Rfam assigns this 83-nucleotide RNA sequence from Thermocatellispora tengchongensis to the family "ZMP/ZTP riboswitch aptamer (pfl RNA motif)". Rfam links the family to the GO terms regulation of purine nucleotide biosynthetic process and one-carbon metabolic process.
[Rfam]
RNA sequence: CGUAAGGGUCGCGACUGGCGCAUCGAGGUGGGAAAACCACCGGGGAGCGGAAGGAGCGGAGGCCGUGCGCCUGGGUCUUCGCG
Numbered sequence: 001c002g003u004a005a006g007g008g009u010c011g012c013g014a015c016u017g018g019c020g021c022a023u024c025g026a027g028g029u030g031g032g033a034a035a036a037c038c039a040c041c042g043g044g045g046a047g048c049g050g051a052a053g054g055a056g057c058g059g060a061g062g063c064c065g066u067g068c069g070c071c072u073g074g075g076u077c078u079u080c081g082c083g
Stems, first nucleotide, its partner, number of pairs: 003056001009050004015044002017071005028040004060078005

Source information:
A reference for the family is Kim et al. (2015), "An ancient riboswitch class in bacteria regulates purine biosynthesis and one-carbon metabolism", Mol Cell. Pairs were carried over by alignment from the consensus structure, which is taken from published work.